[Rfam]
RNA sequence: CAAAUUAUUAUCAUCAUUCCAUAGGAAUGGUGGGUUUGUUCGUAUAACAAAUAUUAACCCGCCUAAGAGGCGGGUUUU
Numbered sequence: 001c002a003a004a005u006u007a008u009u010a011u012c013a014u015c016a017u018u019c020c021a022u023a024g025g026a027a028u029g030g031u032g033g034g035u036u037u038g039u040u041c042g043u044a045u046a047a048c049a050a051a052u053a054u055u056a057a058c059c060c061g062c063c064u065a066a067g068a069g070g071c072g073g074g075u076u077u078u
Stems, first nucleotide, its partner, number of pairs: 011033007056076008